[Rfam]
RNA sequence: CACCUUGCGUCUACAGCCCGAGCGACUCGCACAAGGCUGACGGCUGGUGGCUUCUGCCACCGGCCU
Numbered sequence: 001c002a003c004c005u006u007g008c009g010u011c012u013a014c015a016g017c018c019c020g021a022g023c024g025a026c027u028c029g030c031a032c033a034a035g036g037c038u039g040a041c042g043g044c045u046g047g048u049g050g051c052u053u054c055u056g057c058c059a060c061c062g063g064c065c066u
Base pairs, nucleotide, nucleotide: 014039015038016037017036018035022030023029042065043064044063045062046061047060048059049058050057051056
Rfam assigns this 66-nucleotide RNA from Ectopseudomonas mendocina to the family "Pseudomonas sRNA P26". Rfam's curators write: This small RNA (sRNA) was computationally identified in the genome of the opportunistic pathogen Pseudomonas aeruginosa and its expression verified by northern blot analysis. A reference for the family is Livny et al. (2006), "Identification of 17 Pseudomonas aeruginosa sRNAs and prediction of sRNA-encoding genes in 10 diverse pathogens using the bioinformatic tool sRNAPredict2", Nucleic Acids Res. Taxonomically the source falls in Ectopseudomonas mendocina (Bacteria, Pseudomonadati, Pseudomonadales, Ectopseudomonas).